[Rfam]
RNA sequence: UGAGGUUGCUUGCUUGCGUUUACGGGUCAACAUACGGUGAGAUGCUGCUUUUGUAGUAUUCUCUACUCUUCUUUAUCGCCCGUGGGAAAGUCCGCGAAUAGCCUGACAAUGCUUUUGGUAGGCAGCACUCGAAAGGGUGUGGUAGGGGUACCAGACAACCAUGGCCUGCUUUUCCUUAUGCCAACGAUGAGAGCGUCUUCGGAUUCUCUUUAGGAUAUGGGAUUGGUGGGUUAUUGAAAAUCUUCCCCCCUGGUGUUUUGUUAUGAAGUGCAAUACGCGAGACCAAGUUUUACUUGGCAACUCAAUGCGGAUUACACAGCAUCCUCA
Numbered sequence: 001u002g003a004g005g006u007u008g009c010u011u012g013c014u015u016g017c018g019u020u021u022a023c024g025g026g027u028c029a030a031c032a033u034a035c036g037g038u039g040a041g042a043u044g045c046u047g048c049u050u051u052u053g054u055a056g057u058a059u060u061c062u063c064u065a066c067u068c069u070u071c072u073u074u075a076u077c078g079c080c081c082g083u084g085g086g087a088a089a090g091u092c093c094g095c096g097a098a099u100a101g102c103c104u105g106a107c108a109a110u111g112c113u114u115u116u117g118g119u120a121g122g123c124a125g126c127a128c129u130c131g132a133a134a135g136g137g138u139g140u141g142g143u144a145g146g147g148g149u150a151c152c153a154g155a156c157a158a159c160c161a162u163g164g165c166c167u168g169c170u171u172u173u174c175c176u177u178a179u180g181c182c183a184a185c186g187a188u189g190a191g192a193g194c195g196u197c198u199u200c201g202g203a204u205u206c207u208c209u210u211u212a213g214g215a216u217a218u219g220g221g222a223u224u225g226g227u228g229g230g231u232u233a234u235u236g237a238a239a240a241u242c243u244u245c246c247c248c249c250c251u252g253g254u255g256u257u258u259u260g261u262u263a264u265g266a267a268g269u270g271c272a273a274u275a276c277g278c279g280a281g282a283c284c285a286a287g288u289u290u291u292a293c294u295u296g297g298c299a300a301c302u303c304a305a306u307g308c309g310g311a312u313u314a315c316a317c318a319g320c321a322u323c324c325u326c327a
Base pairs, nucleotide, nucleotide: 001327002326003325004324008320009319010318013281014280015279016278017277018276019275022083023082024081025080026079037068039066040064041063042062092310093309094308095307096306102253103252110124111123112122113121114120125140126139127138128137129136130135141247142246144244145243146242147241164232166230283297284296285295286294287293288292